[Rfam]
RNA sequence: AGAAGACCUCCCGUAAAUCAAGCCUGGCUGGGCGUGCGCAGAUUGUAAAAAAGCGGGAUGACGUCAGAAGAGGUCAUCCCGC
Numbered sequence: 001a002g003a004a005g006a007c008c009u010c011c012c013g014u015a016a017a018u019c020a021a022g023c024c025u026g027g028c029u030g031g032g033c034g035u036g037c038g039c040a041g042a043u044u045g046u047a048a049a050a051a052a053g054c055g056g057g058a059u060g061a062c063g064u065c066a067g068a069a070g071a072g073g074u075c076a077u078c079c080c081g082c
Stems, first nucleotide, its partner, number of pairs: 005044001008041002022033004053082004059076004064071001
RNA: Pseudomonas sRNA P31
Organism: Pseudomonas knackmussii